Annotation
This 66-nucleotide sequence from Drouetiella hepatica belongs to the Rfam family "Glutamine riboswitch aptamer (glnA leader)". NCBI's taxonomy places the organism under Bacteria, Cyanobacteriota, Oculatellales, Drouetiella, Drouetiella hepatica.
RNA sequence: AACGUUCAUCCUAAAUGGCUAAGCCAAACAGGACGGAAGUAAGGGUAAAUCCUGAAGGAACGCGCU
Numbered sequence: 001a002a003c004g005u006u007c008a009u010c011c012u013a014a015a016u017g018g019c020u021a022a023g024c025c026a027a028a029c030a031g032g033a034c035g036g037a038a039g040u041a042a043g044g045g046u047a048a049a050u051c052c053u054g055a056a057g058g059a060a061c062g063c064g065c066u
Stems, first nucleotide, its partner, number of pairs: 003062005009033004036063001042053003
Gene Ontology term of the family: glutamine binding.